[Rfam]
RNA sequence: AGGUAUUGUCUCCUAGACCUUUAUCAUUGGAGGCACUCGGCGAUGCUGUGGGUGGAGUCACCUUAGCACUAGUUGUCAGUAGUAUCGCGUGAGGCGGGGGGGUUGAAUGCUAU
Number, nucleotide and partner (000 for none) at each position: 001a020002g019003g018004u017005a000006u000007u035008g034009u033010c032011u031012c030013c029014u000015a000016g000017a004018c003019c002020u001021u000022u000023a000024u000025c000026a000027u000028u000029g013030g012031a011032g010033g009034c008035a007036c093037u092038c091039g090040g088041c087042g086043a085044u084045g083046c082047u081048g000049u000050g063051g062052g061053u060054g059055g000056a000057g000058u000059c054060a053061c052062c051063u050064u000065a000066g077067c075068a074069c000070u000071a000072g000073u000074u068075g067076u000077c066078a000079g000080u000081a047082g046083u045084a044085u043086c042087g041088c040089g000090u039091g038092a037093g036094g000095c000096g000097g000098g000099g113100g000101g111102g110103u109104u000105g000106a000107a000108u000109g103110c102111u101112a000113u099
A member of the RNA family "epsC RNA" from Gracilibacillus boraciitolerans, 113 nucleotides long. By type it is a cis-regulatory element. Pairs were carried over by alignment from the consensus structure, which is taken from published work. Taxonomically the source falls in Gracilibacillus boraciitolerans (Bacteria, Bacilli, Caryophanales, Bacillaceae).